[Rfam]
RNA sequence: GAGUCAGUGGCAUGUGGCGAGGUUAACCCGGGUGGGGGAGCCGUAGCGAAAGCGAGUCUUAAAAGGCGUUUGAGUCGCGUGUCCUGGACCCGAAGCGGGAUGAUCUAGCCCUGAGCAGGUUGAAGCGUGGGUAAGACCGCGUGGAGGACCGAACCCACCUGGGUUGAAAACCGGGGGGAUGACUUGGGGUUAGGGGUGAAAGGCCAAUCAAAUUCCGUGAUAGCUGGUU
Numbered sequence: 001g002a003g004u005c006a007g008u009g010g011c012a013u014g015u016g017g018c019g020a021g022g023u024u025a026a027c028c029c030g031g032g033u034g035g036g037g038g039a040g041c042c043g044u045a046g047c048g049a050a051a052g053c054g055a056g057u058c059u060u061a062a063a064a065g066g067c068g069u070u071u072g073a074g075u076c077g078c079g080u081g082u083c084c085u086g087g088a089c090c091c092g093a094a095g096c097g098g099g100a101u102g103a104u105c106u107a108g109c110c111c112u113g114a115g116c117a118g119g120u121u122g123a124a125g126c127g128u129g130g131g132u133a134a135g136a137c138c139g140c141g142u143g144g145a146g147g148a149c150c151g152a153a154c155c156c157a158c159c160u161g162g163g164u165u166g167a168a169a170a171c172c173g174g175g176g177g178g179a180u181g182a183c184u185u186g187g188g189g190u191u192a193g194g195g196g197u198g199a200a201a202g203g204c205c206a207a208u209c210a211a212a213u214u215c216c217g218u219g220a221u222a223g224c225u226g227g228u229u
Stems, first nucleotide, its partner, number of pairs: 005086003009083010021042004027036003046053002056067004089227002092224001096217006105193011116181001118150004125142006154178003158175005195205003

The record is a 229-nucleotide part of an RNA from Bifidobacterium tsurumiense, which matches "Bacterial large subunit ribosomal RNA" in Rfam. The family has 102 seed sequences and 51,934 matches in Rfam 15.1. Taxonomically the source falls in Bifidobacterium (Bacteria, Bacillati, Actinomycetota, Actinomycetes). Rfam links the family to the GO terms ribosome and structural constituent of ribosome.